[Rfam]
RNA sequence: UAUUACUUCCACUUGUAAUAUUCCUACCGGUACAUGCGUGAAAAGUAAUUUUUAGGUGUGAUAGCUACCGGGACAAUGUGGUAGAACAGUACUCACAACUGGUAAUACUGCUAGGAAAAGUGCACAUGGUUAACAUAAGUGAACUACUGCUGGG
Numbered sequence: 001u002a003u004u005a006c007u008u009c010c011a012c013u014u015g016u017a018a019u020a021u022u023c024c025u026a027c028c029g030g031u032a033c034a035u036g037c038g039u040g041a042a043a044a045g046u047a048a049u050u051u052u053u054a055g056g057u058g059u060g061a062u063a064g065c066u067a068c069c070g071g072g073a074c075a076a077u078g079u080g081g082u083a084g085a086a087c088a089g090u091a092c093u094c095a096c097a098a099c100u101g102g103u104a105a106u107a108c109u110g111c112u113a114g115g116a117a118a119a120g121u122g123c124a125c126a127u128g129g130u131u132a133a134c135a136u137a138a139g140u141g142a143a144c145u146a147c148u149g150c151u152g153g154g
Base pairs, nucleotide, nucleotide: 002019003018004017005016006015028070029069030068031067032066033060034059035058036057037056039054040053041052042051043050044049087101088100089099090098102123103122104121108115109114127146128145129144130143131142
Shown here is a 154-nucleotide RNA sequence from Enterococcus faecalis, a member of the family "Group II catalytic intron D1-D4-7". From the family's description: Group II introns are found in rRNA, tRNA and mRNA of organelles in fungi, plants and protists, and also in mRNA in bacteria.